RNA sequence: GAAGGUAAAUAAAAAAGUCGUCGUAUAAUAUCGGGAAUACGGACCGAUAGUUUCUACCAAGCCACCGUAAAUGGCUUGACUACGCUAAGAAUAUAGAUUCUU
Numbered sequence: 001g002a003a004g005g006u007a008a009a010u011a012a013a014a015a016a017g018u019c020g021u022c023g024u025a026u027a028a029u030a031u032c033g034g035g036a037a038u039a040c041g042g043a044c045c046g047a048u049a050g051u052u053u054c055u056a057c058c059a060a061g062c063c064a065c066c067g068u069a070a071a072u073g074g075c076u077u078g079a080c081u082a083c084g085c086u087a088a089g090a091a092u093a094u095a096g097a098u099u100c101u102u
Base pairs, nucleotide, nucleotide: 018088020086022084023083024082025081029049030048031047032046033045034044058078059077060076061075062074063073064072